[Rfam]
RNA sequence: CUACCCUUUCUGGCUUUUAUACCGGAUAAUACGGCCCCGAUUUGUCCUCGGGAAUUCAGGAGCGUGCAUGUAC
Numbered sequence: 001c002u003a004c005c006c007u008u009u010c011u012g013g014c015u016u017u018u019a020u021a022c023c024g025g026a027u028a029a030u031a032c033g034g035c036c037c038c039g040a041u042u043u044g045u046c047c048u049c050g051g052g053a054a055u056u057c058a059g060g061a062g063c064g065u066g067c068a069u070g071u072a073c
Stems, first nucleotide, its partner, number of pairs: 036052005
A member of the RNA family "PyrD leader" from [Pantoea] beijingensis, 73 nucleotides long. On this family, see Sorensen, Nucleic Acids Res 1994: "Conformational heterogeneity in the Salmonella typhimurium pyrC and pyrD leader mRNAs produced in vivo". By type it is a cis-regulatory leader. The source organism's lineage runs through Bacteria, Pseudomonadati, Gammaproteobacteria, Enterobacterales and Erwinia.